RNA: ODC internal ribosome entry site (IRES)
Organism: Sciurus carolinensis
RNA sequence: GUUUCCACUGCUGGUCCAAGGACACAGGGGGUUUUGAAUUCCUGGAGAAUUACCUUUGUGAGAAGCUGGAACUAAUUCCUUUAAAUUUCAUCUCUUGGUUUUGCAUCUUGUUGGGUUUCAGAGGUGCAUCAAGAAACU
Numbered sequence: 001g002u003u004u005c006c007a008c009u010g011c012u013g014g015u016c017c018a019a020g021g022a023c024a025c026a027g028g029g030g031g032u033u034u035u036g037a038a039u040u041c042c043u044g045g046a047g048a049a050u051u052a053c054c055u056u057u058g059u060g061a062g063a064a065g066c067u068g069g070a071a072c073u074a075a076u077u078c079c080u081u082u083a084a085a086u087u088u089c090a091u092c093u094c095u096u097g098g099u100u101u102u103g104c105a106u107c108u109u110g111u112u113g114g115g116u117u118u119c120a121g122a123g124g125u126g127c128a129u130c131a132a133g134a135a136a137c138u
Stems, first nucleotide, its partner, number of pairs: 006069001010066003015061002017058005024051001026050001028043004076136002079133003086126001088124002